[Rfam]
RNA: Small nucleolar RNA sn2343
RNA sequence: CGGCUGUGAUGAUUUCCUAUUGCCGUUUACCCGUCUGAGGAAAACCGUGCUUGAUACAACUUGGAAAAGGCUGAGCCG
Numbered sequence: 001c002g003g004c005u006g007u008g009a010u011g012a013u014u015u016c017c018u019a020u021u022g023c024c025g026u027u028u029a030c031c032c033g034u035c036u037g038a039g040g041a042a043a044a045c046c047g048u049g050c051u052u053g054a055u056a057c058a059a060c061u062u063g064g065a066a067a068a069g070g071c072u073g074a075g076c077c078g
Stems, first nucleotide, its partner, number of pairs: 001078004